[Rfam]
RNA sequence: UUGCAUGUUUUGGCCCUGGGCCUCUCUUGGCCUCUCUCUUUCUAUAGAGUGGACAAGCACAAACAUGCUAGAUUAACAAAUGGGAGUUAACAGGGCCGCCAGUCCUUCAAGGUCAGGCUGAGUUGGUAGUAUAAUACUCCCACAUUU
Numbered sequence: 001u002u003g004c005a006u007g008u009u010u011u012g013g014c015c016c017u018g019g020g021c022c023u024c025u026c027u028u029g030g031c032c033u034c035u036c037u038c039u040u041u042c043u044a045u046a047g048a049g050u051g052g053a054c055a056a057g058c059a060c061a062a063a064c065a066u067g068c069u070a071g072a073u074u075a076a077c078a079a080a081u082g083g084g085a086g087u088u089a090a091c092a093g094g095g096c097c098g099c100c101a102g103u104c105c106u107u108c109a110a111g112g113u114c115a116g117g118c119u120g121a122g123u124u125g126g127u128a129g130u131a132u133a134a135u136a137c138u139c140c141c142a143c144a145u146u147u
Stems, first nucleotide, its partner, number of pairs: 003068006029054001031052002034049003083140004095127002099122001100120003104117003
Dot-bracket structure: ..((((((....................(.((.(((..........))).)).)........))))))..............((((........((..((((.(((........)))))).)...)).........)))).......
RNA: Small nucleolar RNA U109
Organism: Stegastes partitus